[Rfam]
RNA sequence: UGAAAGAACUCUGGUUAAGGAACUCUGCAAACUAGCACCGUAAGUUCGCGAUAAGGUGUGCCUAAGCAAUUAGGUCUCAGCAAAGAGUCCCUCCCGACUGUUUACCAAAAACACAGCACUUUGCAAACUCGUAAGAGGAAGUAUAAGGUGUGACGCCUGCCCGGUGCUCGAAGGUUAAGAGGAUUCGUUAGCAGUAAUGCGAAGCGUUGAAUUGAAGCCCGAGUAAACGGCGGCCGUAACUAUAACGGUCCUAAGGUAGCGAAAUUCCUUGUCGGUUAAAUACCGACCUGCAUGAAUGGCGUAACGAGAUGGGAGCUGUCUCAACCAGGGAUUCA
Numbered sequence: 001u002g003a004a005a006g007a008a009c010u011c012u013g014g015u016u017a018a019g020g021a022a023c024u025c026u027g028c029a030a031a032c033u034a035g036c037a038c039c040g041u042a043a044g045u046u047c048g049c050g051a052u053a054a055g056g057u058g059u060g061c062c063u064a065a066g067c068a069a070u071u072a073g074g075u076c077u078c079a080g081c082a083a084a085g086a087g088u089c090c091c092u093c094c095c096g097a098c099u100g101u102u103u104a105c106c107a108a109a110a111a112c113a114c115a116g117c118a119c120u121u122u123g124c125a126a127a128c129u130c131g132u133a134a135g136a137g138g139a140a141g142u143a144u145a146a147g148g149u150g151u152g153a154c155g156c157c158u159g160c161c162c163g164g165u166g167c168u169c170g171a172a173g174g175u176u177a178a179g180a181g182g183a184u185u186c187g188u189u190a191g192c193a194g195u196a197a198u199g200c201g202a203a204g205c206g207u208u209g210a211a212u213u214g215a216a217g218c219c220c221g222a223g224u225a226a227a228c229g230g231c232g233g234c235c236g237u238a239a240c241u242a243u244a245a246c247g248g249u250c251c252u253a254a255g256g257u258a259g260c261g262a263a264a265u266u267c268c269u270u271g272u273c274g275g276u277u278a279a280a281u282a283c284c285g286a287c288c289u290g291c292a293u294g295a296a297u298g299g300c301g302u303a304a305c306g307a308g309a310u311g312g313g314a315g316c317u318g319u320c321u322c323a324a325c326c327a328g329g330g331a332u333u334c335a
Stems, first nucleotide, its partner, number of pairs: 001335004009330008018321003035059005044049001060075006076080001088314004094308001095306002099113003116151008124141001128137003154301004159231003164228002166224005173219003179213002186206003191200002232250006251255001261288001271287006
Bacterial large subunit ribosomal RNA: a 335-nucleotide part of an RNA from Helicobacter bilis. The sequence is in the family's curated seed alignment. The base pairs follow the family's consensus structure, which is taken from published work.